[Rfam]
RNA sequence: UUGAAGUUCUGGCCGCCUAAGGCCGGAACCACAGGCGUCCCGGAGGGUAACUUCCGGGAGGAUCACCGGGUGAAUUGCUGGGAAACCCUGAGAGCCUCCCGCCCGACAGCGAAGCCGGAAACGGCAGGCGCGAUGGUCGAAAAGCCGGGAGGAUUGGGCAACCAGCAGCCGAGCCCCUGUGCCGAAAGGCUGGGGAAGGUUCAACGACUAGGGCAUACCACCUGCGGCCGCCAAGCGGUACGGUGAUGAAGCCCGUAGGGCGCCUGGAGGCGCCCGAAGCGCCCGGCUCCCGCCGGAAAAGGCGGGAUGAAGAUAUAGUCUAGGCGCCGGCGAAAGCCGGCG
Numbered sequence: 001u002u003g004a005a006g007u008u009c010u011g012g013c014c015g016c017c018u019a020a021g022g023c024c025g026g027a028a029c030c031a032c033a034g035g036c037g038u039c040c041c042g043g044a045g046g047g048u049a050a051c052u053u054c055c056g057g058g059a060g061g062a063u064c065a066c067c068g069g070g071u072g073a074a075u076u077g078c079u080g081g082g083a084a085a086c087c088c089u090g091a092g093a094g095c096c097u098c099c100c101g102c103c104c105g106a107c108a109g110c111g112a113a114g115c116c117g118g119a120a121a122c123g124g125c126a127g128g129c130g131c132g133a134u135g136g137u138c139g140a141a142a143a144g145c146c147g148g149g150a151g152g153a154u155u156g157g158g159c160a161a162c163c164a165g166c167a168g169c170c171g172a173g174c175c176c177c178u179g180u181g182c183c184g185a186a187a188g189g190c191u192g193g194g195g196a197a198g199g200u201u202c203a204a205c206g207a208c209u210a211g212g213g214c215a216u217a218c219c220a221c222c223u224g225c226g227g228c229c230g231c232c233a234a235g236c237g238g239u240a241c242g243g244u245g246a247u248g249a250a251g252c253c254c255g256u257a258g259g260g261c262g263c264c265u266g267g268a269g270g271c272g273c274c275c276g277a278a279g280c281g282c283c284c285g286g287c288u289c290c291c292g293c294c295g296g297a298a299a300a301g302g303c304g305g306g307a308u309g310a311a312g313a314u315a316u317a318g319u320c321u322a323g324g325c326g327c328c329g330g331c332g333a334a335a336g337c338c339g340g341c342g
Base pairs, nucleotide, nucleotide: 001011003009004008021030022029066286067285068284069283071281072280076167077166078165079164080163081162086158087157088156090154168200169199174194175193176192204321206320207319208318209317210316288307289306290305291304292303293302294301327340328339329338330337331336

Shown here is a 342-nucleotide RNA from Desulfoscipio geothermicus, a member of the family "Group I catalytic intron". Group I catalytic introns are large self-splicing ribozymes. Gene Ontology term of the family: Group I intron splicing. A search with the family's covariance model found it, with a score of 54 bits. On this family, see Cate et al., Science 1996: "Crystal structure of a group I ribozyme domain: principles of RNA packing".